[Rfam]
RNA sequence: UGGUAGAUGCACCCUGAUAACUAACUCUCCUAGUGGGCUUAUCCUACUAGGGGUUUUUUUU
Dot-bracket structure: .(((......))).............(((((((((((.....)))))))))))........
The family of this 61-nucleotide RNA from Mojavia pulchra is "Nitrogen stress-induced RNA 1". It scores 65 bits against the family's covariance model. The base pairs follow the family's consensus structure.